[Rfam]
RNA sequence: UCACUCGGAUGCCGUCCUGCUUCGAGUCAUUAAACAACGAUCCCCCCUCUUCAUUUUCUUAUCUUAUCGGAGUGCGCAUAUACGAGACAUACUGUUCCCCUUAUAUCAGAUACUCAAAACCGAAAAACACAAAACCCGCUGCUUUUUAAGUAACGGGUUUUGUGUUU
Numbered sequence: 001u002c003a004c005u006c007g008g009a010u011g012c013c014g015u016c017c018u019g020c021u022u023c024g025a026g027u028c029a030u031u032a033a034a035c036a037a038c039g040a041u042c043c044c045c046c047c048u049c050u051u052c053a054u055u056u057u058c059u060u061a062u063c064u065u066a067u068c069g070g071a072g073u074g075c076g077c078a079u080a081u082a083c084g085a086g087a088c089a090u091a092c093u094g095u096u097c098c099c100c101u102u103a104u105a106u107c108a109g110a111u112a113c114u115c116a117a118a119a120c121c122g123a124a125a126a127a128c129a130c131a132a133a134a135c136c137c138g139c140u141g142c143u144u145u146u147u148a149a150g151u152a153a154c155g156g157g158u159u160u161u162g163u164g165u166u167u
Stems, first nucleotide, its partner, number of pairs: 007097004014088003017084001019083001022076001025073001027070002125167014140152005
Shown here is a 167-nucleotide sequence from Morococcus cerebrosus, a member of the family "NrrF RNA". The match comes from Rfam's covariance-model search (72 bits).